Rfam assigns this 76-nucleotide sequence from Cyprinus carpio to the family "Small nucleolar RNA SNORD83". It scores 46 bits against the family's covariance model. For this family Rfam cites "Characterisation of the U83 and U84 small nucleolar RNAs: two novel 2'-O-ribose methylation guide RNAs that lack complementarities to ribosomal RNAs" (Jady and Kiss, Nucleic Acids Res, 2000).
RNA sequence: GCCACAUGAUGUGAAAUAGAUUGCAUUAGCACUACUGCAAAGAUGACCUUCUAUCUAUCACCCAAGACUGAUGGCA
Numbered sequence: 001g002c003c004a005c006a007u008g009a010u011g012u013g014a015a016a017u018a019g020a021u022u023g024c025a026u027u028a029g030c031a032c033u034a035c036u037g038c039a040a041a042g043a044u045g046a047c048c049u050u051c052u053a054u055c056u057a058u059c060a061c062c063c064a065a066g067a068c069u070g071a072u073g074g075c076a
Stems, first nucleotide, its partner, number of pairs: 001075004029038003